Shown here is a 136-nucleotide RNA sequence from Digitaria exilis, a member of the family "Small nucleolar RNA snoR138". Rfam 15.1 lists 308 matches to the family in 168 species. For this family Rfam cites "Mining small RNA sequencing data: a new approach to identify small nucleolar RNAs in Arabidopsis" (Chen and Wu, Nucleic Acids Res, 2009). NCBI's taxonomy places the organism under Eukaryota, Spermatophyta, Magnoliopsida, Panicoideae, Digitaria. The family's RNA type in Rfam is H/ACA-box small nucleolar RNA. The family's consensus secondary structure was predicted with mfold.
[Rfam]
RNA sequence: UGUGCCUCUUGAAUAACCAAUUGCUGUGAUUAGUAUAUUUGCAUUUGGUUCAGACAGGGGCACAUACCAAAUGGGAUCUUUUGAGGGAAGGGAUCUUGUUCUUUGUUAAUCCCUUCUUAGAUUGAUUCGAACAGUA
Numbered sequence: 001u002g003u004g005c006c007u008c009u010u011g012a013a014u015a016a017c018c019a020a021u022u023g024c025u026g027u028g029a030u031u032a033g034u035a036u037a038u039u040u041g042c043a044u045u046u047g048g049u050u051c052a053g054a055c056a057g058g059g060g061c062a063c064a065u066a067c068c069a070a071a072u073g074g075g076a077u078c079u080u081u082u083g084a085g086g087g088a089a090g091g092g093a094u095c096u097u098g099u100u101c102u103u104u105g106u107u108a109a110u111c112c113c114u115u116c117u118u119a120g121a122u123u124g125a126u127u128c129g130a131a132c133a134g135u136a
Base pairs, nucleotide, nucleotide: 003062004061005060006059007058009057015050016049017048018047019046020045022043024041026039074128075127076126077125078124084102085101086100088099091096108123109122110121111120